[Rfam]
RNA sequence: AUUUUAGUUUUCUAGGGUUCCGCAGUUUUAUCUGGCAGGUCCGAGGGAAAACCCACAGUAAAAAGUGGACACGGAAGGAUAAAAGCCUAGGAGAA
Numbered sequence: 001a002u003u004u005u006a007g008u009u010u011u012c013u014a015g016g017g018u019u020c021c022g023c024a025g026u027u028u029u030a031u032c033u034g035g036c037a038g039g040u041c042c043g044a045g046g047g048a049a050a051a052c053c054c055a056c057a058g059u060a061a062a063a064a065g066u067g068g069a070c071a072c073g074g075a076a077g078g079a080u081a082a083a084a085g086c087c088u089a090g091g092a093g094a095a
Stems, first nucleotide, its partner, number of pairs: 007052006015042002020039002022036001023034003053068004070090001072093001076088003

This 95-nucleotide RNA from Clostridium neonatale belongs to the Rfam family "Guanidine-I riboswitch aptamer". A search with the family's covariance model found it, with a score of 73 bits. Rfam describes the family as follows. This family represents a conserved RNA structure found upstream of the ykkC and yxkD genes in Bacillus subtilis and related genes in other bacteria. The function of this family is unclear although it has been suggested that it may function to switch on efflux pumps and detoxification systems in response to harmful environmental molecules. For this family Rfam cites "New RNA motifs suggest an expanded scope for riboswitches in bacterial genetic control" (Barrick et al., Proc Natl Acad Sci U S A, 2004).